[Rfam]
A member of the RNA family "FMN riboswitch aptamer (RFN element)" from a Microbacteriaceae bacterium, 166 nucleotides long. It scores 73 bits against the family's covariance model. Pairs were carried over by alignment from the consensus structure, which is taken from published work. NCBI's taxonomy places the organism under Bacteria, Bacillati, Actinomycetes, Micrococcales, Microbacteriaceae.

RNA sequence: UACGUGCUCCGGGGUCGGUGAAAUUCCGAACCGGCGGUGAUAGUCCGCGACCCGAGUGAAACCAGCGUGAUCGUGCGCUGGCAGAUCACGGUUGAGCCGGUGGAAUUCCGGGACCGACAGUUAUGAGGCUAGAACGCCUCUCAGUCUGGAUGAUAGGCAGCACGAG
Dot-bracket structure: ..((((((((.....(((.......)))...((((((.....[[))))...((....................................)).....((((.......)))).]])).(((.........................))).......)).))))))..